[Rfam]
RNA sequence: CGUUUCCGAUACCGACGCCUGCCCAAAGCCCGGGCACGGGCCCAACCCGAUCAGCGCCGGCUCCCCCGAUGU
Numbered sequence: 001c002g003u004u005u006c007c008g009a010u011a012c013c014g015a016c017g018c019c020u021g022c023c024c025a026a027a028g029c030c031c032g033g034g035c036a037c038g039g040g041c042c043c044a045a046c047c048c049g050a051u052c053a054g055c056g057c058c059g060g061c062u063c064c065c066c067c068g069a070u071g072u
Base pairs, nucleotide, nucleotide: 007071008070018039019038020036021035023033024032051069052068054066056064
This 72-nucleotide RNA from Pseudomonas kuykendallii belongs to the Rfam family "Pseudomonas sRNA P10". Pairs were carried over by alignment from the consensus structure, which was predicted with WAR. The match comes from Rfam's covariance-model search (56 bits).